[Rfam]
RNA sequence: GUGAGCGCACACAACUGGCGCGGGUGGGACACCACCGGGGAGUGACGUCGCGAGCAUCGACCGCCUGGGUGCUCACC
Numbered sequence: 001g002u003g004a005g006c007g008c009a010c011a012c013a014a015c016u017g018g019c020g021c022g023g024g025u026g027g028g029a030c031a032c033c034a035c036c037g038g039g040g041a042g043u044g045a046c047g048u049c050g051c052g053a054g055c056a057u058c059g060a061c062c063g064c065c066u067g068g069g070u071g072c073u074c075a076c077c
Base pairs, nucleotide, nucleotide: 003049004048010044011043012042015039016038017065018064019063020062024035025034026033027032054072055071056070057069058068